[Rfam]
RNA: mir-1420 microRNA precursor family
Organism: Ornithorhynchus anatinus
RNA sequence: UGCUCAACCUUGCCUAUCCGAUCGGCUUGCACUGUCUGGUUAUAUUAAAGGGAAAGUGCUUCCCGUUCGGAUGAGUUAGGUUUGAGGU
Numbered sequence: 001u002g003c004u005c006a007a008c009c010u011u012g013c014c015u016a017u018c019c020g021a022u023c024g025g026c027u028u029g030c031a032c033u034g035u036c037u038g039g040u041u042a043u044a045u046u047a048a049a050g051g052g053a054a055a056g057u058g059c060u061u062c063c064c065g066u067u068c069g070g071a072u073g074a075g076u077u078a079g080g081u082u083u084g085a086g087g088u
Stems, first nucleotide, its partner, number of pairs: 003086005008080002012076002015073007023065003029059005035053003